Fluoride riboswitch aptamer (crcB RNA motif): a 62-nucleotide RNA sequence from Pseudomonas entomophila. NCBI's taxonomy places the organism under Bacteria, Gammaproteobacteria, Pseudomonadales, Pseudomonas, Pseudomonas entomophila. It is one of the family's seed sequences.
[Rfam]
RNA sequence: CGUGGCCCAGGAGAUGGCAUUCCUCCUUGAACCGCCUCAGCGCUGAUGAUGCCUACGCAACC
Numbered sequence: 001c002g003u004g005g006c007c008c009a010g011g012a013g014a015u016g017g018c019a020u021u022c023c024u025c026c027u028u029g030a031a032c033c034g035c036c037u038c039a040g041c042g043c044u045g046a047u048g049a050u051g052c053c054u055a056c057g058c059a060a061c062c
Stems, first nucleotide, its partner, number of pairs: 010026004016053006034043002